[Rfam]
Record summary:
The family of this 75-nucleotide sequence from Methylobacterium terrae is "Makes More Granules Regulator RNA (mmgR)". It scores 72 bits against the family's covariance model. NCBI's taxonomy places the organism under Bacteria, Pseudomonadati, Pseudomonadota, Hyphomicrobiales, Methylobacterium. A reference for the family is Schluter et al. (2010), "A genome-wide survey of sRNAs in the symbiotic nitrogen-fixing alpha-proteobacterium Sinorhizobium meliloti", BMC Genomics. From the family's description: SuhB later renamed mmgR (makes more granules regulator) was a putative non-coding RNA found multiple times in the Agrobacterium tumefaciens genome and related alpha-proteobacteria. Other non-coding RNAs uncovered in the same analysis include: speF, ybhL, metA, and serC.Several studies inSinorhizobium meliloti showed that suhB element is indeed a non-coding RNA:firstly it was detected on Northern blot and called Sm8RNA, secondly in an RNAseq study referred to as SmelC689.The mutant phenotype's (strain lacking the small RNA) cytoplasm contains higher content of polyhydroxybutyrate (PBH)storage granules than wild type strain. The sRNA is required to limit the PBH intracellular accumulation when the nitrogen-fixing Sinorhizobium meliloti is under condition of surplus carbon in relation to nitrogen. It has been renamed to mmgR. Further study confirmed that mmgR fine-tunes the regulation of PBH storage.Northern blot confirmed the expression of the sRNA in other rhizobia species. MmgR homologues were found in most alpha-proteobacteria. Rfam links the family to the GO terms DNA-templated transcription, termination, response to nitrogen compound and protein binding.

RNA sequence: CGGUGCUGCCCUUCUUGGGCGUUUCCUCCCUAGACUUCGGGCCGCCUCGCAAGGGCGGCCUUUUUUCUGGCCGGU
Numbered sequence: 001c002g003g004u005g006c007u008g009c010c011c012u013u014c015u016u017g018g019g020c021g022u023u024u025c026c027u028c029c030c031u032a033g034a035c036u037u038c039g040g041g042c043c044g045c046c047u048c049g050c051a052a053g054g055g056c057g058g059c060c061u062u063u064u065u066u067c068u069g070g071c072c073g074g075u
Base pairs, nucleotide, nucleotide: 008020009019010018011017040060041059042058043057044056045055046054047053